[Rfam]
RNA sequence: UCCGUAGCUGGGCUACCCGGCAACUUCCCUUGGCGGAUCUCGUCAAGAGACUGCCGAGAUGAUAACGCGGUUUUUAUGGAUGUAUUUUGUCCGCGUGUCAAGGCCCUCCUGACCUUUACAGUUUUGGAGAGGUAACAAAAACGAGUCCUCGUU
Numbered sequence: 001u002c003c004g005u006a007g008c009u010g011g012g013c014u015a016c017c018c019g020g021c022a023a024c025u026u027c028c029c030u031u032g033g034c035g036g037a038u039c040u041c042g043u044c045a046a047g048a049g050a051c052u053g054c055c056g057a058g059a060u061g062a063u064a065a066c067g068c069g070g071u072u073u074u075u076a077u078g079g080a081u082g083u084a085u086u087u088u089g090u091c092c093g094c095g096u097g098u099c100a101a102g103g104c105c106c107u108c109c110u111g112a113c114c115u116u117u118a119c120a121g122u123u124u125u126g127g128a129g130a131g132g133u134a135a136c137a138a139a140a141a142c143g144a145g146u147c148c149u150c151g152u153u
Base pairs, nucleotide, nucleotide: 007021008020009019010018011017012016028061029058030057031056032055033054034053035052036051038050039049040048041047079147080146081145082142083141085140086139087138088137089136090135104132105131106129107128108127109126114121